[Rfam]
RNA sequence: GAAAAGUGGAGUUCAGAAACCACAAUAAAAACGAGGCGUUACUGAAAAGCCAAACGAGUAAGAAAAUA
Dot-bracket structure: .....((((..........))))...........(((....[[.....))).........]]......